Rfam assigns this 73-nucleotide RNA sequence from uncultured Eubacterium sp. to the family "HDV ribozyme from F. prausnitzii". Rfam's curators put it in the seed alignment. On this family, see Webb et al., Science 2009: "Widespread occurrence of self-cleaving ribozymes". Taxonomically the source falls in Eubacterium (Bacteria, Bacillati, Clostridia, Eubacteriaceae).

[Rfam]
RNA sequence: GCUGCUCGAAACUUUGCACAUCUCUUCGUGGUGAGCAGCAGACAACGUUGAUACAGCGGCUAAGAAUGCAAAG
Numbered sequence: 001g002c003u004g005c006u007c008g009a010a011a012c013u014u015u016g017c018a019c020a021u022c023u024c025u026u027c028g029u030g031g032u033g034a035g036c037a038g039c040a041g042a043c044a045a046c047g048u049u050g051a052u053a054c055a056g057c058g059g060c061u062a063a064g065a066a067u068g069c070a071a072a073g
Stems, first nucleotide, its partner, number of pairs: 001039007020032003046058005